RNA sequence: AGGUCAAUGAUGAGAACCUUAUAUUGUCUGAAGAGAGGUGAUGACUUAAAAUCAUGCUCACAGGAUUAAUGGGCCU
Numbered sequence: 001a002g003g004u005c006a007a008u009g010a011u012g013a014g015a016a017c018c019u020u021a022u023a024u025u026g027u028c029u030g031a032a033g034a035g036a037g038g039u040g041a042u043g044a045c046u047u048a049a050a051a052u053c054a055u056g057c058u059c060a061c062a063g064g065a066u067u068a069a070u071g072g073g074c075c076u
Stems, first nucleotide, its partner, number of pairs: 001076004005071002